RNA sequence: UUAUGCCUGGCUCCCUGUAUGCCACAAGCGGAAGCUCAAUCUGGUUCUAGAUUGGCUACUGCGGGUGGCGUACGAGGAGCCAAGCAUAC
Numbered sequence: 001u002u003a004u005g006c007c008u009g010g011c012u013c014c015c016u017g018u019a020u021g022c023c024a025c026a027a028g029c030g031g032a033a034g035c036u037c038a039a040u041c042u043g044g045u046u047c048u049a050g051a052u053u054g055g056c057u058a059c060u061g062c063g064g065g066u067g068g069c070g071u072a073c074g075a076g077g078a079g080c081c082a083a084g085c086a087u088a089c
Base pairs, nucleotide, nucleotide: 002088003087004086005085006084008082009081010080011079012078013077014076016074017073018072019071020070021069022068023067024066028062029061